This 76-nucleotide sequence from Oryzias melastigma belongs to the Rfam family "U1A polyadenylation inhibition element (PIE)". This family represents the U1A polyadenylation inhibition element (PIE). PIE is a regulatory RNA which is responsible for the regulation of the length of the polyA tail of the U1A pre-mRNA. The PIE is located in the U1A mRNA 3' UTR. PIE adopts a U-shaped structure, with binding sites for a single U1A protein at each bend and when complexed with the two proteins it blocks activity of poly(A) polymerase (PAP), and inhibits its activity. A reference for the family is Clerte and Hall (2004), "Global and Local Dynamics of the U1A Polyadenylation Inhibition Element (PIE) RNA and PIE RNA-U1A Complexes", Biochemistry. Rfam 15.1 lists 510 matches to the family in 331 species. The family's RNA type in Rfam is cis-regulatory element. The source organism's lineage runs through Eukaryota, Craniata, Euteleostomi, Euteleosteomorpha and Oryzias.
RNA sequence: UUUGAAAGCAUUGCACCCAGGGUCUGACUUGUCAGACAUUGUACCUGGAGCUUGGUUGGUUUGUUUUAUUUUUAUU
Dot-bracket structure: .....((((.......((((.(((((......))))).......)))).)))).......................
Numbered sequence: 001u002u003u004g005a006a007a008g009c010a011u012u013g014c015a016c017c018c019a020g021g022g023u024c025u026g027a028c029u030u031g032u033c034a035g036a037c038a039u040u041g042u043a044c045c046u047g048g049a050g051c052u053u054g055g056u057u058g059g060u061u062u063g064u065u066u067u068a069u070u071u072u073u074a075u076u
Stems, first nucleotide, its partner, number of pairs: 006053004017048004022037005